[Rfam]
RNA sequence: UCGCACAUUUUGUUGUCUGAUUAUUGAUUUUUGGCGAAACCAUUUGAUCAUAUGACAAGAUGUGUAUCUA
Numbered sequence: 001u002c003g004c005a006c007a008u009u010u011u012g013u014u015g016u017c018u019g020a021u022u023a024u025u026g027a028u029u030u031u032u033g034g035c036g037a038a039a040c041c042a043u044u045u046g047a048u049c050a051u052a053u054g055a056c057a058a059g060a061u062g063u064g065u066a067u068c069u070a
Base pairs, nucleotide, nucleotide: 003065004064005063006062007061008060009059010058011057012056013055014054015053016052018050019049035046036045037044038043

Rfam assigns this 70-nucleotide RNA from an uncultured bacterium to the family "RNA-OUT". Rfam's curators write: Transposition of insertion sequence IS10 is regulated by an anti-sense RNA which inhibits transposase expression when IS10 is present in multiple copies per cell. The anti-sense RNA (RNA-OUT) consists of a stem domain topped by a flexibly paired loop; the 5' end of the target molecule, RNA-IN, is complementary to the top of the loop, and complementarity extends for 35 base-pairs down one side of RNA-OUT. This bacterial RNA is also found in the genomic sequence of eukaryotic organisms. This is probably due to vector contamination. Pairs were carried over by alignment from the consensus structure, which was predicted with PFOLD. The family's RNA type in Rfam is antisense RNA. For this family Rfam cites "Insertion sequence IS10 anti-sense pairing initiates by an interaction between the 5' end of the target RNA and a loop in the anti-sense RNA" (Kittle et al., J Mol Biol, 1989). Rfam 15.1 lists 102 matches to the family in 57 species.